Record summary: Lysine riboswitch aptamer: a 178-nucleotide sequence from Oscillibacter sp. 1-3. The base pairs follow the family's consensus structure, which is taken from published work.
RNA sequence: AGUGUGGAUAGAGGCGCGGAACGCAAGGUAGCAGACCGAUGUAAAGGACAGGCAAGUCCGAGGAGGUUUGUGAAUGUCCGUACCGCCGAAAGAGAGUGUGCAAUGCCGUCACCCCUCUUGGACCUGUACGCCCAGCGCGUACGGUUUGUCAUGGAAAGCAUGGAGUGCUAUUUACGCC
Numbered sequence: 001a002g003u004g005u006g007g008a009u010a011g012a013g014g015c016g017c018g019g020a021a022c023g024c025a026a027g028g029u030a031g032c033a034g035a036c037c038g039a040u041g042u043a044a045a046g047g048a049c050a051g052g053c054a055a056g057u058c059c060g061a062g063g064a065g066g067u068u069u070g071u072g073a074a075u076g077u078c079c080g081u082a083c084c085g086c087c088g089a090a091a092g093a094g095a096g097u098g099u100g101c102a103a104u105g106c107c108g109u110c111a112c113c114c115c116u117c118u119u120g121g122a123c124c125u126g127u128a129c130g131c132c133c134a135g136c137g138c139g140u141a142c143g144g145u146u147u148g149u150c151a152u153g154g155a156a157a158g159c160a161u162g163g164a165g166u167g168c169u170a171u172u173u174a175c176g177c178c
Stems, first nucleotide, its partner, number of pairs: 006173006016086004021081003031071007090119005096114001098112003120147004125143006149163005